[Rfam]
RNA sequence: CAAUCCAAAUAUCUUAGGAUAUUAAAGGCUAAGUUAGAUGAUUGUAAUGUUAUAGAGUUGCAUGGGUGCGACCGUACCGGAGGUGGCUUGUCCAUUUCAAGUCAGGCAGUUGAGUUGUGUGGCCCGGGCGAAGGCUCAAGCUUCAUAGUCUCUUAAAGUGGAAGACACCGUGUUAGGCUGGCUUCACAGAGUAGCGAACACCUCCCUCUCUUGAUGGUGAAGGAAUAACAGGCCGUUGUAUACUGCACUCACCAUGCCCAUCGGGCUAACACCGAUCAAACCAGUAACUUU
Numbered sequence: 001c002a003a004u005c006c007a008a009a010u011a012u013c014u015u016a017g018g019a020u021a022u023u024a025a026a027g028g029c030u031a032a033g034u035u036a037g038a039u040g041a042u043u044g045u046a047a048u049g050u051u052a053u054a055g056a057g058u059u060g061c062a063u064g065g066g067u068g069c070g071a072c073c074g075u076a077c078c079g080g081a082g083g084u085g086g087c088u089u090g091u092c093c094a095u096u097u098c099a100a101g102u103c104a105g106g107c108a109g110u111u112g113a114g115u116u117g118u119g120u121g122g123c124c125c126g127g128g129c130g131a132a133g134g135c136u137c138a139a140g141c142u143u144c145a146u147a148g149u150c151u152c153u154u155a156a157a158g159u160g161g162a163a164g165a166c167a168c169c170g171u172g173u174u175a176g177g178c179u180g181g182c183u184u185c186a187c188a189g190a191g192u193a194g195c196g197a198a199c200a201c202c203u204c205c206c207u208c209u210c211u212u213g214a215u216g217g218u219g220a221a222g223g224a225a226u227a228a229c230a231g232g233c234c235g236u237u238g239u240a241u242a243c244u245g246c247a248c249u250c251a252c253c254a255u256g257c258c259c260a261u262c263g264g265g266c267u268a269a270c271a272c273c274g275a276u277c278a279a280a281c282c283a284g285u286a287a288c289u290u291u
Stems, first nucleotide, its partner, number of pairs: 001027001003020004008015002031290006040281001042279003045275001048271005055262002060257003064250007074241003078238002083236009093223001095222005101215006108209002112152003115148005121142003126137004153158001160205003164201001171196003178189003
RNA: Plant signal recognition particle RNA